This 76-nucleotide RNA from Cnephaeus nilssonii belongs to the Rfam family "mir-9229 microRNA precursor family". Rfam links the family to the GO terms RISC complex and miRNA-mediated post-transcriptional gene silencing. It scores 73 bits against the family's covariance model.
[Rfam]
RNA sequence: GAGACAUGCUUAUGGGGCAGGACUUGUUUCAGUGUGGCUUUGGUGCUCACUGAGUCUGCCUGUUGAAUGUGUCACG
Numbered sequence: 001g002a003g004a005c006a007u008g009c010u011u012a013u014g015g016g017g018c019a020g021g022a023c024u025u026g027u028u029u030c031a032g033u034g035u036g037g038c039u040u041u042g043g044u045g046c047u048c049a050c051u052g053a054g055u056c057u058g059c060c061u062g063u064u065g066a067a068u069g070u071g072u073c074a075c076g
Base pairs, nucleotide, nucleotide: 001075003073004072005071006070007069010066011065012064015061016060017059018058019057021056022055023054029053030052031051032050033049034048036046037044038043